[Rfam]
RNA sequence: GCAACUGCCACUGGGAUACACCCUGUGCUCGCUUUGAAUAUUGUGCAAACAAGUGAACACAGCUGGUGGUAUCCAGUGGCCGUUU
Numbered sequence: 001g002c003a004a005c006u007g008c009c010a011c012u013g014g015g016a017u018a019c020a021c022c023c024u025g026u027g028c029u030c031g032c033u034u035u036g037a038a039u040a041u042u043g044u045g046c047a048a049a050c051a052a053g054u055g056a057a058c059a060c061a062g063c064u065g066g067u068g069g070u071a072u073c074c075a076g077u078g079g080c081c082g083u084u085u
Stems, first nucleotide, its partner, number of pairs: 007080005014074003018070002020067003023062003027058001029056002

mir-317 microRNA precursor family: an 85-nucleotide RNA from Drosophila willistoni.
On this family, see Stark et al., Genome Res 2007: "Systematic discovery and characterization of fly microRNAs using 12 Drosophila genomes".